[Rfam]
This 339-nucleotide RNA from Capra hircus belongs to the Rfam family "7SK RNA". The organism belongs to Capra, within Eukaryota. 7SK was discovered as an abundant small nuclear RNA in the mid-70s but a possible function has only recently been suggested. Two independent studies have found that 7SK RNA binds the CDK9/cyclin T complex (known as elongation factor P-TEFb). P-TEFb activates transcription by phosphorylating the C-terminal domain of RNA polymerase II. This process is negatively regulated by the 7SK RNP. The secondary structure of 7SK RNA shown here was proposed by Wasserman and Steitz on the basis of chemical modification and enzymatic cleavage experiments. This family contains a number of annotated pseudogenes and 7SK derived repeats.

RNA sequence: GGAUGUGAGGGCAAUCUGGUUGCAACAUCUGUCACCCCAUUGAUCGCCAGGGUUGAUUCGGCUGAUCUGGCUGGCUAGGCGGGUGUCCCCUUCCUCCCUCACCGCUCCAUGUGCGUCCCUCCCGAAGCUGCGCGCUCGGUCGAAGAGGACGACCAUCCCCGAUAGAGGAGGACCGGUCUUCGGUCAAGGGUAUACGAGUAGCUGCGCUCCCCUGCUAGAACCUCCAAACAAGCUCUCAAGAAUACUCAAGUGGUGUGCCAUUCCCUUCUCCAGUGGACCAUGUUUUGUCAGGCUCUGACUAGAAGGGACAGAUCCUUCAGCUACUCCAGGAAGCCAGAU
Numbered sequence: 001g002g003a004u005g006u007g008a009g010g011g012c013a014a015u016c017u018g019g020u021u022g023c024a025a026c027a028u029c030u031g032u033c034a035c036c037c038c039a040u041u042g043a044u045c046g047c048c049a050g051g052g053u054u055g056a057u058u059c060g061g062c063u064g065a066u067c068u069g070g071c072u073g074g075c076u077a078g079g080c081g082g083g084u085g086u087c088c089c090c091u092u093c094c095u096c097c098c099u100c101a102c103c104g105c106u107c108c109a110u111g112u113g114c115g116u117c118c119c120u121c122c123c124g125a126a127g128c129u130g131c132g133c134g135c136u137c138g139g140u141c142g143a144a145g146a147g148g149a150c151g152a153c154c155a156u157c158c159c160c161g162a163u164a165g166a167g168g169a170g171g172a173c174c175g176g177u178c179u180u181c182g183g184u185c186a187a188g189g190g191u192a193u194a195c196g197a198g199u200a201g202c203u204g205c206g207c208u209c210c211c212c213u214g215c216u217a218g219a220a221c222c223u224c225c226a227a228a229c230a231a232g233c234u235c236u237c238a239a240g241a242a243u244a245c246u247c248a249a250g251u252g253g254u255g256u257g258c259c260a261u262u263c264c265c266u267u268c269u270c271c272a273g274u275g276g277a278c279c280a281u282g283u284u285u286u287g288u289c290a291g292g293c294u295c296u297g298a299c300u301a302g303a304a305g306g307g308a309c310a311g312a313u314c315c316u317u318c319a320g321c322u323a324c325u326c327c328a329g330g331a332a333g334c335c336a337g338a339u
Stems, first nucleotide, its partner, number of pairs: 001108003005102007014092001018090002025086009035074002037070003042067004046062003116171002118168004122139004127135002140162003147158003201293003207287001214283002223277003228274002232270001320334003324330001